[Rfam]
RNA: Plastid-psbA-1 3UTR RNA
RNA sequence: UUAAAGCUUAAUUUACAAAUGGAUAAAACUUUGGUAUGAUUGUAUAGGAUUUUUUGAACUCAAAAAGGAGCAAUAGCUUCCCUCUUGUUUUACUAAGAGAGCGCUAUUGCUUCUUU
Numbered sequence: 001u002u003a004a005a006g007c008u009u010a011a012u013u014u015a016c017a018a019a020u021g022g023a024u025a026a027a028a029c030u031u032u033g034g035u036a037u038g039a040u041u042g043u044a045u046a047g048g049a050u051u052u053u054u055u056g057a058a059c060u061c062a063a064a065a066a067g068g069a070g071c072a073a074u075a076g077c078u079u080c081c082c083u084c085u086u087g088u089u090u091u092a093c094u095a096a097g098a099g100a101g102c103g104c105u106a107u108u109g110c111u112u113c114u115u116u
Base pairs, nucleotide, nucleotide: 008023009022011020012019064116065115066114067113068112069111070110071109072108073107074106075105076104080101082099083098084097085096086095